[Rfam]
RNA sequence: GUGAUAUAGCAGACGGAAGUCAUGAAUACAGGUGCUUGCACCUGUAUUCAUGACCUCAGGAUGCGAACAGACAUGAGGAAAAAAGAUAUGCGAAUGAAAAGAGCAUAUCGAUUUCCGAAUGGAUGUAGCAUGGCGAGAACGAAGUGGAGCCAUGCGUAUAUCAC
Numbered sequence: 001g002u003g004a005u006a007u008a009g010c011a012g013a014c015g016g017a018a019g020u021c022a023u024g025a026a027u028a029c030a031g032g033u034g035c036u037u038g039c040a041c042c043u044g045u046a047u048u049c050a051u052g053a054c055c056u057c058a059g060g061a062u063g064c065g066a067a068c069a070g071a072c073a074u075g076a077g078g079a080a081a082a083a084a085g086a087u088a089u090g091c092g093a094a095u096g097a098a099a100a101g102a103g104c105a106u107a108u109c110g111a112u113u114u115c116c117g118a119a120u121g122g123a124u125g126u127a128g129c130a131u132g133g134c135g136a137g138a139a140c141g142a143a144g145u146g147g148a149g150c151c152a153u154g155c156g157u158a159u160a161u162c163a164c
Base pairs, nucleotide, nucleotide: 001164002163003162004161005160006159010063011062014059016057017056019054020053021052022051023050024049025048026047027046028045030043031042032041033040034039067126068125069124072121073120074119077116078115079114080113085109086108087107088106089105090104091103128155129154130153131152132151133150134149139145140144

Rfam assigns this 164-nucleotide sequence from Butyrivibrio sp. INlla14 to the family "Clostridiales-1 RNA".
By type it is a small RNA.
It scores 93 bits against the family's covariance model.
Lineage of the source: Bacteria > Bacillati > Clostridia > Lachnospiraceae > Butyrivibrio.